[Rfam]
Annotation
The record is a 68-nucleotide RNA from Xanthomonas euvesicatoria, which matches "int-alpA RNA" in Rfam. Pairs were carried over by alignment from the consensus structure, which is taken from published work. About the family: Acidobacteria (1 example), Planctomycetes (1 example), Proteobacteria. By type it is a small RNA.

RNA sequence: CCCGCACCUAGCCCGACGGGGCGAAAAGCCGGACACCCUGCCGGCGUGGUGCGGGGACUUGUCCAGGG
Dot-bracket structure: ((((((((..((((....)))).....(((((...[[[[[)))))..))))))))........]]]]]